[Rfam]
RNA sequence: AGCCUACCCAAGGCAGGGACGGGGGACCCACCGUUCUACGGGCUCCGGCCACGCCGGGGUCCUUGGGGUGAAGCUCCCACCGAGAGGCGGGAGCCGGGUGCACUCCAGCCCGACCCGACAGCUCACCUCGCAGGCGUAGGAGGAA
Numbered sequence: 001a002g003c004c005u006a007c008c009c010a011a012g013g014c015a016g017g018g019a020c021g022g023g024g025g026a027c028c029c030a031c032c033g034u035u036c037u038a039c040g041g042g043c044u045c046c047g048g049c050c051a052c053g054c055c056g057g058g059g060u061c062c063u064u065g066g067g068g069u070g071a072a073g074c075u076c077c078c079a080c081c082g083a084g085a086g087g088c089g090g091g092a093g094c095c096g097g098g099u100g101c102a103c104u105c106c107a108g109c110c111c112g113a114c115c116c117g118a119c120a121g122c123u124c125a126c127c128u129c130g131c132a133g134g135c136g137u138a139g140g141a142g143g144a145a
Base pairs, nucleotide, nucleotide: 002135003134004133008018009017020130021129022128023127024126029065030064066116067115068114074093075092076091077090096111097110098109099108
Dot-bracket structure: .(((...((.......)).(((((....((.................................))(((.....((((............))))..((((........))))..))).........)))))..)))..........